[Rfam]
RNA sequence: GGGGGUGAACGGUCUCGACUUCGUACGUCGAGUCAGGGGAAGCGGGUCGAGGAAGCCGUGAUGAUCUCGUUAACCAUCCACGGCAACCAAUAGGUGCCAAUACAAACAGCACCCAGGCUCAGCUCGCUCUCGCUGCCUAAGCAGAGCAGUUGACCUUGUGAGCCCGGAGAUGCUCUCGCUCCGGUGCCUCGCAUCAUCUAGAGGGCUCACCGUCAGGUCCGGUCGCGGGAUCUGACGGGACAUCUCACAGCGGCUGGGCCCGUCGGCAGGUGUGCUCGUGCACCGGCCGGGGCCGAGAAAAUCGCUCCACGAGAUGCACCCGGAGAAGCCCUGGCACCACGGCGAAGGACGCGGGUUCGAUUCCCGCCACCUCCACCC
Number, nucleotide and partner (000 for none) at each position: 001g374002g373003g372004g371005g370006u369007g368008a000009a000010c000011g000012g000013u000014c000015u000016c000017g000018a000019c347020u346021u345022c344023g343024u342025a000026c341027g340028u339029c000030g337031a000032g335033u334034c333035a332036g331037g330038g329039g000040a000041a000042g000043c322044g321045g320046g319047u318048c069049g068050a067051g066052g065053a000054a000055g084056c083057c082058g081059u080060g079061a000062u000063g000064a000065u052066c051067u050068c049069g048070u000071u000072a000073a000074c000075c000076a000077u000078c000079c060080a059081c058082g057083g056084c055085a000086a000087c000088c000089a000090a000091u000092a000093g000094g000095u000096g000097c000098c000099a000100a000101u000102a000103c000104a000105a000106a000107c000108a000109g000110c000111a000112c000113c000114c000115a000116g000117g000118c000119u000120c000121a000122g000123c000124u000125c000126g000127c000128u000129c000130u152131c000132g150133c149134u148135g147136c146137c000138u000139a000140a000141g000142c000143a000144g000145a000146g136147c135148a134149g133150u132151u000152g130153a000154c000155c000156u000157u193158g192159u191160g190161a189162g188163c186164c184165c183166g182167g181168a180169g179170a000171u000172g206173c205174u204175c203176u202177c201178g000179c169180u168181c167182c166183g165184g164185u000186g163187c000188c162189u161190c160191g159192c158193a157194u000195c000196a000197u000198c000199u000200a000201g177202a176203g175204g174205g173206c172207u000208c000209a000210c238211c237212g236213u235214c234215a233216g232217g231218u230219c000220c000221g255222g254223u253224c252225g251226c250227g000228g000229g000230a218231u217232c216233u215234g214235a213236c212237g211238g210239g000240a000241c000242a000243u000244c000245u000246c000247a000248c000249a000250g226251c225252g224253g223254c222255u221256g000257g294258g293259c292260c291261c290262g000263u000264c289265g288266g287267c000268a000269g000270g283271u282272g281273u000274g000275c000276u313277c000278g310279u309280g308281c272282a271283c270284c000285g000286g000287c266288c265289g264290g261291g260292g259293c258294c257295g000296a000297g000298a000299a000300a000301a000302u000303c000304g000305c000306u000307c000308c280309a279310c278311g000312a000313g276314a000315u000316g000317c000318a047319c046320c045321c044322g043323g000324a000325g000326a000327a000328g000329c038330c037331c036332u035333g034334g033335c032336a000337c030338c000339a028340c027341g026342g024343c023344g022345a021346a020347g019348g000349a000350c000351g367352c366353g365354g364355g363356u000357u000358c000359g000360a000361u000362u000363c355364c354365c353366g352367c351368c007369a006370c005371c004372u003373c002374c001375a000376c000377c000378c000
Shown here is a 378-nucleotide RNA sequence from Motilibacter rhizosphaerae, a member of the family "transfer-messenger RNA". The match comes from Rfam's covariance-model search (156 bits). Bacterial tmRNA, also known as 10Sa RNA or SsrA, is named for its dual tRNA and mRNA-like properties. The family's RNA type in Rfam is non-coding RNA gene. Pairs were carried over by alignment from the consensus structure, which is taken from published work. Rfam links the family to the GO term RNA catabolic process.